RNA sequence: UAAUGCUGCUGGGGGUGUCCGUGACGACCCGCUUAGGCUUGGAUUUUCGGUGCUCGGGCCUGUGACGUCCAGCCGAGGUCCGAGCCGGCGAGGCGCAGUCCCGGGCUGAGAGAAGACCCUUUGAACCUGAACCGGAUCAUGCCGGCGCAGGAAAGCAGAGAAGGUAUCAG
Dot-bracket structure: .....(((((((((.((((((................................................................................))))).......)..)))).....((((..((((......))))..))))..)))))............
This 170-nucleotide RNA from Thiorhodococcus minor belongs to the Rfam family "TPP riboswitch aptamer (THI element)".
The match comes from Rfam's covariance-model search (66 bits).
Taxonomically the source falls in Thiorhodococcus (Bacteria, Pseudomonadati, Pseudomonadota, Chromatiaceae).